Background: A member of the RNA family "c-di-AMP riboswitch aptamer (ydaO/yuaA leader)" from Paenibacillus sp. 32O-W, 146 nucleotides long.
RNA sequence: ACAAAAAAGAUGCCGAAUUCCUUGAAAGGAAACGGGGGAACCAUUUCGGGUGAAUUGAUCCCGAUUGCGAAUGCGCGAAUCGGGGGUCAUAGGGAGCCUUCAACCGAACCCCACAGCUAACCUCGUAGGCUACGGAAGGAGCUUUA
Numbered sequence: 001a002c003a004a005a006a007a008a009g010a011u012g013c014c015g016a017a018u019u020c021c022u023u024g025a026a027a028g029g030a031a032a033c034g035g036g037g038g039a040a041c042c043a044u045u046u047c048g049g050g051u052g053a054a055u056u057g058a059u060c061c062c063g064a065u066u067g068c069g070a071a072u073g074c075g076c077g078a079a080u081c082g083g084g085g086g087u088c089a090u091a092g093g094g095a096g097c098c099u100u101c102a103a104c105c106g107a108a109c110c111c112c113a114c115a116g117c118u119a120a121c122c123u124c125g126u127a128g129g130c131u132a133c134g135g136a137a138g139g140a141g142c143u144u145u146a
Stems, first nucleotide, its partner, number of pairs: 012130003018031003032126006048111003056089007092105002